[Rfam]
RNA: mir-186 microRNA precursor family
RNA sequence: GCUCAUAACUUUCCAAAGAAUUCUCCUUUUGGGCUUUCUAUGCUUGGUCACAGCCCAAAGGUGAAUUUUUUGGGAAGUUUGA
Numbered sequence: 001g002c003u004c005a006u007a008a009c010u011u012u013c014c015a016a017a018g019a020a021u022u023c024u025c026c027u028u029u030u031g032g033g034c035u036u037u038c039u040a041u042g043c044u045u046g047g048u049c050a051c052a053g054c055c056c057a058a059a060g061g062u063g064a065a066u067u068u069u070u071u072g073g074g075a076a077g078u079u080u081g082a
Base pairs, nucleotide, nucleotide: 008078009077010076011075012074013073014072015071016070017069018068019067020066021065022064023063025061026060027059028058029057031056032055033054034053035052